[Rfam]
RNA sequence: AAGCAGAGACAAAACGCUUGCGUUUUGAACGUUGGCUCCGCCAACGGCCCCAAAGGGGCGAGUGAACAAUGUUCACGAGUAAAACCGACCGCUUGCGAG
Numbered sequence: 001a002a003g004c005a006g007a008g009a010c011a012a013a014a015c016g017c018u019u020g021c022g023u024u025u026u027g028a029a030c031g032u033u034g035g036c037u038c039c040g041c042c043a044a045c046g047g048c049c050c051c052a053a054a055g056g057g058g059c060g061a062g063u064g065a066a067c068a069a070u071g072u073u074c075a076c077g078a079g080u081a082a083a084a085c086c087g088a089c090c091g092c093u094u095g096c097g098a099g
Stems, first nucleotide, its partner, number of pairs: 010027007030046007047059005062076006079096004